Small nucleolar RNA R11/Z151: an 88-nucleotide RNA from Brassica napus. The family has 5 seed sequences and 802 matches in Rfam 15.1. Pairs were carried over by alignment from the consensus structure, which was predicted with PFOLD. A search with the family's covariance model found it, with a score of 102 bits. On this family, see Barneche et al., J Mol Biol 2001: "Identification of 66 box C/D snoRNAs in Arabidopsis thaliana: extensive gene duplications generated multiple isoforms predicting new ribosomal RNA 2'-O-methylation sites". NCBI's taxonomy places the organism under Eukaryota, Spermatophyta, Pentapetalae, Brassicales, Brassica. Gene Ontology terms of the family: RNA processing and nucleolus. By type it is a C/D-box small nucleolar RNA.
[Rfam]
RNA sequence: AAGCUUAUGAUGAUAAAACAAUAAUCUUAGCGGAUUUCAGUGAGGUUUAUUGAUCAAUGAUCUGAAUUUGUUACACACACUGAAGCUA
Numbered sequence: 001a002a003g004c005u006u007a008u009g010a011u012g013a014u015a016a017a018a019c020a021a022u023a024a025u026c027u028u029a030g031c032g033g034a035u036u037u038c039a040g041u042g043a044g045g046u047u048u049a050u051u052g053a054u055c056a057a058u059g060a061u062c063u064g065a066a067u068u069u070g071u072u073a074c075a076c077a078c079a080c081u082g083a084a085g086c087u088a
Stems, first nucleotide, its partner, number of pairs: 002087004